Rfam assigns this 238-nucleotide part of an RNA from Gemmatimonas aurantiaca to the family "Bacterial large subunit ribosomal RNA". The sequence is in the family's curated seed alignment.

RNA sequence: GAGUUACUCCUCAGAUGCGAGGCUAAGGUGCUCAGCACCGGAGCCAGAGCGAAAGCGAGUCCUGUAACGAGGGCGCAUGAGUAUCUGGGGGUACGACCCGAAACCAGGGCGAUCUACCCAUGAGCAGGGUGAAGCUGAGGUAACACUUAGUGGAGGCCCGAACCGGUGUGGGUUGAAAACCAUUCGGAUGACUUGUGGGUAGGGGUGAAAGGCCAAUCAAGCCUGGAGAUAGCUGGUU
Number, nucleotide and partner (000 for none) at each position: 001g000002a000003g000004u000005u093006a092007c091008u000009c090010c089011u088012c087013a086014g085015a084016u083017g082018c081019g000020a000021g045022g044023c043024u042025a000026a000027g039028g038029u037030g000031c000032u000033c000034a000035g000036c000037a029038c028039c027040g000041g000042a024043g023044c022045c021046a000047g000048a000049g056050c055051g000052a000053a000054a000055g050056c049057g000058a000059g074060u073061c072062c071063u000064g000065u000066a000067a000068c000069g000070a000071g062072g061073g060074c059075g000076c000077a000078u000079g000080a000081g018082u017083a016084u015085c014086u013087g012088g011089g010090g009091g007092u006093a005094c000095g000096a000097c236098c235099c000100g233101a000102a000103a000104c226105c225106a224107g000108g223109g222110c221111g000112a000113u000114c202115u201116a200117c199118c198119c197120a196121u195122g194123a193124g192125c190126a000127g159128g158129g157130u156131g000132a000133a000134g151135c150136u149137g148138a147139g146140g000141u000142a000143a000144c000145a000146c139147u138148u137149a136150g135151u134152g000153g000154a000155g000156g130157c129158c128159c127160g000161a000162a000163c187164c186165g185166g000167u000168g183169u182170g181171g180172g000173u000174u000175g000176a000177a000178a000179a000180c171181c170182a169183u168184u000185c165186g164187g163188a000189u000190g125191a000192c124193u123194u122195g121196u120197g119198g118199g117200u116201a115202g114203g000204g214205g213206u212207g000208a000209a000210a000211g000212g206213c205214c204215a000216a000217u000218c000219a000220a000221g110222c109223c108224u106225g105226g104227a000228g000229a000230u000231a000232g000233c100234u000235g098236g097237u000238u000